RNA sequence: GGAGGCUUCGCCUAGUCCGGUCUAUGGCGCCGCACUGCUAAUGCGGUUUGGGACUUACAUCCCAUCCGGGGUUCAAAUCCCCGAGCCUCCG
Numbered sequence: 001g002g003a004g005g006c007u008u009c010g011c012c013u014a015g016u017c018c019g020g021u022c023u024a025u026g027g028c029g030c031c032g033c034a035c036u037g038c039u040a041a042u043g044c045g046g047u048u049u050g051g052g053a054c055u056u057a058c059a060u061c062c063c064a065u066c067c068g069g070g071g072u073u074c075a076a077a078u079c080c081c082c083g084a085g086c087c088u089c090c091g
Stems, first nucleotide, its partner, number of pairs: 001090007010028003030046005067083005